[Rfam]
RNA sequence: GGUCACGAGUUCCAGCGUCAAGCCCUGGCUUGCUGGGCAGCAACCCUCCGAUCACGGCUGGGGUGCUCCAGGUGACGACCCGGCGGGCGGGAGCCGUCCGCAAGCGUGAUCG
Numbered sequence: 001g002g003u004c005a006c007g008a009g010u011u012c013c014a015g016c017g018u019c020a021a022g023c024c025c026u027g028g029c030u031u032g033c034u035g036g037g038c039a040g041c042a043a044c045c046c047u048c049c050g051a052u053c054a055c056g057g058c059u060g061g062g063g064u065g066c067u068c069c070a071g072g073u074g075a076c077g078a079c080c081c082g083g084c085g086g087g088c089g090g091g092a093g094c095c096g097u098c099c100g101c102a103a104g105c106g107u108g109a110u111c112g
Stems, first nucleotide, its partner, number of pairs: 001080004009038001011037006021030002039067003044063003048057002083101008